[Rfam]
RNA sequence: AGGUCACUUCAAAGAGGGUUUGCGCGGCUGAAAAACCGGCAGCUCUUAACGCGGUGACCACAUAGUGAAAUCCUCUGCAGGAUGCCGUGGACACCUGGUGUGUGCUAUGGUCUAUUUAUGAGGAGACACG
Numbered sequence: 001a002g003g004u005c006a007c008u009u010c011a012a013a014g015a016g017g018g019u020u021u022g023c024g025c026g027g028c029u030g031a032a033a034a035a036c037c038g039g040c041a042g043c044u045c046u047u048a049a050c051g052c053g054g055u056g057a058c059c060a061c062a063u064a065g066u067g068a069a070a071u072c073c074u075c076u077g078c079a080g081g082a083u084g085c086c087g088u089g090g091a092c093a094c095c096u097g098g099u100g101u102g103u104g105c106u107a108u109g110g111u112c113u114a115u116u117u118a119u120g121a122g123g124a125g126a127c128a129c130g
Base pairs, nucleotide, nucleotide: 002059003058004057005056006055007054014047015046016045017044018043019042020041023039026037027036072123073122074121075120079116080115082113087108088107089106090105092104093103094102095100
Dot-bracket structure: .((((((......(((((((..(..((........)).).)))))))......))))))............((((...((.(....((((.((((....).)))))))....).))...)))).......
Rfam assigns this 130-nucleotide RNA sequence from Rhinoptilus africanus to the family "Small nucleolar RNA SNORA25". ACA25 is a member of the H/ACA class of snoRNA that guide the sites of modification of uridines to pseudouridines. Its family is annotated with RNA processing and nucleolus in the Gene Ontology. The match comes from Rfam's covariance-model search (87 bits). Lineage of the source: Eukaryota > Bilateria > Sauropsida > Theropoda > Rhinoptilus.